[Rfam]
RNA sequence: AAAUCGAUGUGUGACUGGCGUAAACAUGGAUAACCAUGAGGGAGCACAUCGCAAACAGCCGUACGCCUGGGCAAAGUAU
Numbered sequence: 001a002a003a004u005c006g007a008u009g010u011g012u013g014a015c016u017g018g019c020g021u022a023a024a025c026a027u028g029g030a031u032a033a034c035c036a037u038g039a040g041g042g043a044g045c046a047c048a049u050c051g052c053a054a055a056c057a058g059c060c061g062u063a064c065g066c067c068u069g070g071g072c073a074a075a076g077u078a079u
Base pairs, nucleotide, nucleotide: 005051006050007049008048009047010046011045012044015041016040017067018066019065020064021063026037027036028035029034058072059071060070
Dot-bracket structure: ....((((((((..(([[[[[....((((....))))..))..))))))))......(((..]]]]]..))).......